A member of the RNA family "A. fumigatus sRNA Afu_254" from Helicocarpus griseus, 154 nucleotides long. The organism belongs to Helicocarpus griseus, within Eukaryota.
RNA sequence: AUACUACAUCCUCGCAACCAAAAACAAUUACCGAAUUUUCUAGCAAAUUCUCUCGUCAAACCACAUACAAAAUGUCUCCCUGCAACUGCAACUGCUGCUCCGGCGACUGCAACUCCUGCAGCUGCAGCAGCUGCUCUGUAAGUCUUCAUGCAGA
Numbered sequence: 001a002u003a004c005u006a007c008a009u010c011c012u013c014g015c016a017a018c019c020a021a022a023a024a025c026a027a028u029u030a031c032c033g034a035a036u037u038u039u040c041u042a043g044c045a046a047a048u049u050c051u052c053u054c055g056u057c058a059a060a061c062c063a064c065a066u067a068c069a070a071a072a073u074g075u076c077u078c079c080c081u082g083c084a085a086c087u088g089c090a091a092c093u094g095c096u097g098c099u100c101c102g103g104c105g106a107c108u109g110c111a112a113c114u115c116c117u118g119c120a121g122c123u124g125c126a127g128c129a130g131c132u133g134c135u136c137u138g139u140a141a142g143u144c145u146u147c148a149u150g151c152a153g154a
Stems, first nucleotide, its partner, number of pairs: 081105003088098003109134003118125002